[Rfam]
RNA: Pseudomon-groES RNA
RNA sequence: GUAUGGGUCACCGCAAGGUCUGUGGCAUCAGCGCCACACAUGUUUCCGCGUCUUGCCGUGCAAGGCGCGACCGGUUACGCCGGAAGAUCCACACCGCCGGUACACACCGGC
Dot-bracket structure: .........(((....))).((((((......))))))........(((((((((.....))))))))).((((.....))))............((((((....))))))
Numbered sequence: 001g002u003a004u005g006g007g008u009c010a011c012c013g014c015a016a017g018g019u020c021u022g023u024g025g026c027a028u029c030a031g032c033g034c035c036a037c038a039c040a041u042g043u044u045u046c047c048g049c050g051u052c053u054u055g056c057c058g059u060g061c062a063a064g065g066c067g068c069g070a071c072c073g074g075u076u077a078c079g080c081c082g083g084a085a086g087a088u089c090c091a092c093a094c095c096g097c098c099g100g101u102a103c104a105c106a107c108c109g110g111c
Stems, first nucleotide, its partner, number of pairs: 010019003021038006047069009071083004096111006